[Rfam]
RNA sequence: ACAGCGAGUGCGGGAGAGCCGACGGGGCCGAGGCCGCCGACGGCACCGAAGGAGCAAGCCUCCCCGCCAAUCUCUCAGGUACGCGUACCGCUCUCGCCAG
Dot-bracket structure: .....(((.((((.....(((...................))).(((((..(((...((......))....))))).))).......)))).))).....
The record is a 100-nucleotide RNA sequence from Yonghaparkia sp. Root332, which matches "Glycine riboswitch aptamer" in Rfam. Its family is annotated with glycine biosynthetic process in the Gene Ontology. The organism belongs to Microcella, within Bacteria.